[Rfam]
RNA: int-alpA RNA
Organism: Pararobbsia silviterrae
RNA sequence: ACCGCGCCUAGGCUGAUCCCCGAAAAACCGGCUCCCUUACCGGACUGGCGCGGUUCCUCAUAAAGGG
Number, nucleotide and partner (000 for none) at each position: 001a054002c053003c052004g051005c050006g049007c048008c047009u000010a000011g021012g020013c000014u000015g000016a000017u000018c000019c000020c012021c011022g000023a000024a000025a000026a000027a000028c043029c042030g041031g040032c000033u000034c067035c066036c065037u064038u063039a000040c031041c030042g029043g028044a000045c000046u000047g008048g007049c006050g005051c004052g003053g002054u001055u000056c000057c000058u000059c000060a000061u000062a000063a038064a037065g036066g035067g034